Rfam assigns this 106-nucleotide RNA sequence to the family "Gammaprotebacteria rimP leader".
Pairs were carried over by alignment from the consensus structure, which is taken from published work.
The match comes from Rfam's covariance-model search (50 bits).
On this family, see Naville and Gautheret, Genome Biol 2010: "Premature terminator analysis sheds light on a hidden world of bacterial transcriptional attenuation".
By type it is a cis-regulatory leader.
RNA sequence: GCCCAAAAAGGGGGUUUUGGGGGGGGGGAAAAAAAAACCCCCAAAAUUUUGGGGGGUUUUUUUUUUUUUUUUUUUAAAAAAAAGGGGGUUUUUUAACCUUUUUUUU
Number, nucleotide and partner (000 for none) at each position: 001g000002c000003c000004c000005a000006a000007a000008a000009a000010g000011g000012g000013g000014g000015u000016u000017u000018u000019g000020g000021g000022g000023g000024g000025g000026g000027g000028g000029a000030a000031a000032a000033a000034a060035a059036a058037a057038c056039c055040c054041c053042c052043a000044a000045a000046a000047u000048u000049u000050u000051g000052g042053g041054g040055g039056g038057u037058u036059u035060u034061u000062u000063u000064u000065u000066u000067u000068u000069u000070u000071u000072u000073u000074u000075u000076a000077a000078a000079a000080a000081a000082a000083a000084g000085g000086g099087g098088g097089u096090u000091u000092u000093u000094u000095a000096a089097c088098c087099u086100u000101u000102u000103u000104u000105u000106u000